Description: Shown here is a 179-nucleotide sequence from Litoribrevibacter albus, a member of the family "6S / SsrS RNA". The match comes from Rfam's covariance-model search (85 bits). Rfam 15.1 lists 5,006 matches to the family in 4,638 species. The base pairs follow the family's consensus structure, which is taken from published work. About the family: E. coli 6S RNA was the first non coding RNA to be sequenced, but its function was unknown until recently. It consists of 184 nucleotides that fold into an extended hairpin structure with a large single-stranded internal bulge. The 6S RNA specifically associates with RNA polymerase holoenzyme containing the sigma70 specificity factor. This interaction represses expression from a sigma70-dependent promoter during stationary phase. 6S RNA homologs have recently been identified in most bacterial genomes. Many Gram-positive species have two copies of 6S RNA. In Bacillus subtilis, both copies appear to interact with RNA polymerase holoenzyme containing the housekeeping sigma factor and be expressed during different stages of growth. In many proteobacteria, 6S RNA may be processed from a transcript encoding homologs of the E. coli YgfA protein which is a putative 5-formyltetrahydrofolate cycloligase activity.
RNA sequence: UAAGCUCUGAAGUACUCGCCAGCUGAUGCGUUCCUCGAGCCGAUAAUCCUAUUUUAGGAGGUUGGCCGCGUAAGCUAUUGUGCAAGUCCGCAUGACGGGAAGCCUACGGCAUACCGACAACCACCACUCUGAACCAUCGGGUUCAGGGGCCAAGUCGGCAGCGAUACUUUGGAGCCUUU
Numbered sequence: 001u002a003a004g005c006u007c008u009g010a011a012g013u014a015c016u017c018g019c020c021a022g023c024u025g026a027u028g029c030g031u032u033c034c035u036c037g038a039g040c041c042g043a044u045a046a047u048c049c050u051a052u053u054u055u056a057g058g059a060g061g062u063u064g065g066c067c068g069c070g071u072a073a074g075c076u077a078u079u080g081u082g083c084a085a086g087u088c089c090g091c092a093u094g095a096c097g098g099g100a101a102g103c104c105u106a107c108g109g110c111a112u113a114c115c116g117a118c119a120a121c122c123a124c125c126a127c128u129c130u131g132a133a134c135c136a137u138c139g140g141g142u143u144c145a146g147g148g149g150c151c152a153a154g155u156c157g158g159c160a161g162c163g164a165u166a167c168u169u170u171g172g173a174g175c176c177u178u179u
Stems, first nucleotide, its partner, number of pairs: 002177001004175011017163003032149003037144005057125002061121004066116001068115001070114003074110003082103002087099004
Dot-bracket structure: .(.(((((((((((..(((............(((..(((((...............((..((((.(.(.(((.(((.....((...((((.....))))..))....))).))))).))))..))..............)))))..)))...........))).))))))))))).)..